[Rfam]
RNA sequence: GGAUUAGGAGGCGAUGUGAUUGGGUCCAUAUGGACUCAGGAAAGUCCCCGGGCCUUAUCUGCAGCGAUGCAGCCUUGGUAACAAGGAACUUGUUGCAAUAAUUCUACCAUAAUGGGCUGAGACAAGUGUGGAGCCUAGAAUCUAGCACAAGACGUUGGCCAAUUUCACAGCUCAUUCACAUGGUCCAUGUGACUAACUGAACGGGGCUUAUGCCCUCCUCAUC
Number, nucleotide and partner (000 for none) at each position: 001g000002g223003a222004u221005u000006a219007g218008g217009a216010g215011g214012c000013g000014a181015u180016g179017u178018g177019a176020u000021u000022g037023g036024g035025u034026c033027c032028a000029u000030a000031u000032g027033g026034a025035c024036u023037c022038a000039g000040g000041a000042a209043a208044g207045u000046c206047c205048c204049c203050g000051g000052g000053c000054c000055u000056u000057a000058u000059c000060u071061g070062c069063a068064g000065c000066g000067a000068u063069g062070c061071a060072g000073c086074c085075u084076u083077g082078g000079u000080a000081a000082c077083a076084a075085g074086g073087a000088a000089c151090u150091u149092g000093u000094u000095g146096c145097a000098a143099u000100a000101a000102u000103u140104c000105u138106a000107c000108c000109a000110u000111a000112a000113u000114g136115g135116g134117c133118u000119g000120a000121g000122a000123c000124a129125a000126g000127u000128g000129u124130g000131g000132a000133g117134c116135c115136u114137a000138g105139a000140a103141u000142c000143u098144a000145g096146c095147a000148c000149a091150a090151g089152a000153c000154g000155u000156u000157g000158g000159c000160c000161a000162a000163u000164u000165u000166c000167a000168c000169a000170g000171c000172u000173c000174a000175u000176u019177c018178a017179c016180a015181u014182g000183g193184u192185c191186c000187a000188u000189g000190u000191g185192a184193c183194u000195a000196a000197c000198u000199g000200a000201a000202c000203g049204g048205g047206g046207c044208u043209u042210a000211u000212g000213c000214c011215c010216u009217c008218c007219u006220c000221a004222u003223c002
RNA: RNase MRP